Shown here is a 95-nucleotide RNA from Saccharopolyspora phatthalungensis, a member of the family "Bacterial small signal recognition particle RNA". The organism belongs to Saccharopolyspora, within Bacteria. Rfam classes the family as a non-coding RNA gene. The match comes from Rfam's covariance-model search (66 bits). About the family: The signal recognition particle (SRP) is a universally conserved ribonucleoprotein involved in the co-translational targeting of proteins to membranes.

RNA sequence: CGUGGACCUCGUGCGGCGUCCAUCCUGUGAACUCCCCCAGGGCCGGAAGGCAGCAAGGGUAAGCGGGCUCUGGCGGGUGCACGGGGUCCCCUUUA
Numbered sequence: 001c002g003u004g005g006a007c008c009u010c011g012u013g014c015g016g017c018g019u020c021c022a023u024c025c026u027g028u029g030a031a032c033u034c035c036c037c038c039a040g041g042g043c044c045g046g047a048a049g050g051c052a053g054c055a056a057g058g059g060u061a062a063g064c065g066g067g068c069u070c071u072g073g074c075g076g077g078u079g080c081a082c083g084g085g086g087u088c089c090c091c092u093u094u095a
Stems, first nucleotide, its partner, number of pairs: 004089010014077001017075004024067005034059003042051003